[Rfam]
RNA sequence: AGGCGAUGAAGAUGAAAACAUUUCUCGAUUCUGAGUAUAUAUUUAUAUAUACAUGGACCAACCAUUGGCAUAGUAUUCGUAUUAUGUACGGAUGCUUUGCUACUUGAUGACAGUGUUUGUGCGUGUCUGAGCCUU
Numbered sequence: 001a002g003g004c005g006a007u008g009a010a011g012a013u014g015a016a017a018a019c020a021u022u023u024c025u026c027g028a029u030u031c032u033g034a035g036u037a038u039a040u041a042u043u044u045a046u047a048u049a050u051a052c053a054u055g056g057a058c059c060a061a062c063c064a065u066u067g068g069c070a071u072a073g074u075a076u077u078c079g080u081a082u083u084a085u086g087u088a089c090g091g092a093u094g095c096u097u098u099g100c101u102a103c104u105u106g107a108u109g110a111c112a113g114u115g116u117u118u119g120u121g122c123g124u125g126u127c128u129g130a131g132c133c134u135u
Stems, first nucleotide, its partner, number of pairs: 001134004